The record is a 131-nucleotide RNA from Jaculus jaculus, which matches "Small nucleolar RNA SNORA33" in Rfam. ACA33 is a member of the H/ACA class of snoRNA that guide the sites of modification of uridines to pseudouridines. By type it is an H/ACA-box small nucleolar RNA. The match comes from Rfam's covariance-model search (99 bits). Taxonomically the source falls in Jaculus (Eukaryota, Eumetazoa, Mammalia, Theria). Rfam links the family to the GO terms nucleolus and RNA processing.

RNA sequence: AAGCCAACCAAUUAAUCUGCUAAUCUGAAUGCGUUUCUGCAGAAAUUUACAAAAAGCUGGCAAGAGUGAGACCAUGUUACCAGCAAUAAGGACAACUUAGUUCAUUAAGGUCCUUGAAAAUGAUUACAAUA
Numbered sequence: 001a002a003g004c005c006a007a008c009c010a011a012u013u014a015a016u017c018u019g020c021u022a023a024u025c026u027g028a029a030u031g032c033g034u035u036u037c038u039g040c041a042g043a044a045a046u047u048u049a050c051a052a053a054a055a056g057c058u059g060g061c062a063a064g065a066g067u068g069a070g071a072c073c074a075u076g077u078u079a080c081c082a083g084c085a086a087u088a089a090g091g092a093c094a095a096c097u098u099a100g101u102u103c104a105u106u107a108a109g110g111u112c113c114u115u116g117a118a119a120a121u122g123a124u125u126a127c128a129a130u131a
Base pairs, nucleotide, nucleotide: 003061004060005059006058016043017042018041019040020039071124073122074121083111084110087107088106089105091103092102